[Rfam]
RNA sequence: GAGUUACGGUAUCGUGCGAGGUUAAGGUGGAAAGACCGGAGCCGCAGCGAAAGCGAGUGUGAAUAGCGCGAAUAGUACGAUGCUGUAGACCCGAAACCAGGUGACCUACCCAUGGUCAGGAUGAAGGUGAGGUAAAACUUACUGGAGGUCCGAACCGGUGCAUGUUAAAAAAUGCUCGGAUGAACUGUGGGUAGCGGUGAAAUUCCAAACGAACCUGGAGAUAGCUGGUU
Number, nucleotide and partner (000 for none) at each position: 001g000002a000003g000004u000005u087006a086007c085008g084009g083010u082011a081012u080013c079014g078015u077016g076017c075018g000019a000020g043021g042022u041023u040024a000025a000026g037027g036028u035029g000030g000031a000032a000033a000034g000035a028036c027037c026038g000039g000040a023041g022042c021043c020044g000045c000046a000047g054048c053049g000050a000051a000052a000053g048054c047055g000056a000057g069058u068059g067060u066061g000062a000063a000064u000065a000066g060067c059068g058069c057070g000071a000072a000073u000074a000075g017076u016077a015078c014079g013080a012081u011082g010083c009084u008085g007086u006087a005088g000089a000090c228091c227092c000093g225094a000095a000096a000097c218098c217099a216100g215101g214102u213103g000104a000105c000106c194107u193108a192109c191110c190111c189112a188113u187114g186115g185116u184117c182118a000119g151120g150121a149122u148123g000124a000125a000126g143127g142128u141129g140130a139131g138132g000133u000134a000135a000136a000137a000138c131139u130140u129141a128142c127143u126144g000145g000146a000147g000148g122149u121150c120151c119152g000153a000154a000155c179156c178157g177158g000159u000160g175161c174162a173163u172164g000165u000166u000167a000168a000169a000170a000171a000172a163173u162174g161175c160176u000177c157178g156179g155180a000181u000182g117183a000184a116185c115186u114187g113188u112189g111190g110191g109192u108193a107194g106195c000196g206197g205198u000199g000200a000201a000202a000203u000204u000205c197206c196207a000208a000209a000210c000211g000212a000213a102214c101215c100216u099217g098218g097219a000220g000221a000222u000223a000224g000225c093226u000227g091228g090229u000230u000
Bacterial large subunit ribosomal RNA: a 230-nucleotide part of an RNA from Leuconostoc fallax. The base pairs follow the family's consensus structure, which is taken from published work.